[Rfam]
RNA sequence: GGAUCAUUUGCACUUUUAGUAUUUGUCCAGUAGGUUUCCUCAAGGAGAAAGCCUCC
Numbered sequence: 001g002g003a004u005c006a007u008u009u010g011c012a013c014u015u016u017u018a019g020u021a022u023u024u025g026u027c028c029a030g031u032a033g034g035u036u037u038c039c040u041c042a043a044g045g046a047g048a049a050a051g052c053c054u055c056c
Stems, first nucleotide, its partner, number of pairs: 033053005039047003
Dot-bracket structure: ................................(((((.(((...))).)))))...

This 56-nucleotide RNA from Oncorhynchus mykiss belongs to the Rfam family "U7 small nuclear RNA".
Rfam's curators write: Animal histone pre-mRNAs are spliced by a different mechanism than nuclear pre-mRNAs and self-splicing introns.
The family's consensus secondary structure was predicted with PFOLD.